[Rfam]
RNA sequence: ACAAUAGAAUAGGAUUUCUCAAGGGUGGUCGGUACACUCCCAAACAGGAGGGGGGUGAUGCCGAAUGACAGUUUUUGAAUCGUUAAUGUUUGCGGUUGGCUUUGCUAGUCUAAUCGUAGCGAUCCUGUCAUUUAAAUCAAAAAAUAAUCCACCCUUGAGUUAACCGGCUCAGGUGGAUUAUUCUGCCAAAAAAGCUGACCCCCUUUGAGGGAUCGUCUAUUGUUGGACCGGACAUGCUCUAACAUGUUCG
Numbered sequence: 001a002c003a004a005u006a007g008a009a010u011a012g013g014a015u016u017u018c019u020c021a022a023g024g025g026u027g028g029u030c031g032g033u034a035c036a037c038u039c040c041c042a043a044a045c046a047g048g049a050g051g052g053g054g055g056u057g058a059u060g061c062c063g064a065a066u067g068a069c070a071g072u073u074u075u076u077g078a079a080u081c082g083u084u085a086a087u088g089u090u091u092g093c094g095g096u097u098g099g100c101u102u103u104g105c106u107a108g109u110c111u112a113a114u115c116g117u118a119g120c121g122a123u124c125c126u127g128u129c130a131u132u133u134a135a136a137u138c139a140a141a142a143a144a145u146a147a148u149c150c151a152c153c154c155u156u157g158a159g160u161u162a163a164c165c166g167g168c169u170c171a172g173g174u175g176g177a178u179u180a181u182u183c184u185g186c187c188a189a190a191a192a193a194g195c196u197g198a199c200c201c202c203c204u205u206u207g208a209g210g211g212a213u214c215g216u217c218u219a220u221u222g223u224u225g226g227a228c229c230g231g232a233c234a235u236g237c238u239c240u241a242a243c244a245u246g247u248u249c250g
Base pairs, nucleotide, nucleotide: 001223002222003221004220005219007217008216011213012196013195015193016192018159019158020157021156022155023154024153025152027149028148029147035057036056038055039054040053041052067129068128069127070126071125080095081094082093103121104120105119106118162182163181199211200210201209229250230249231248232247233246234245235244236243
RNA: BsrG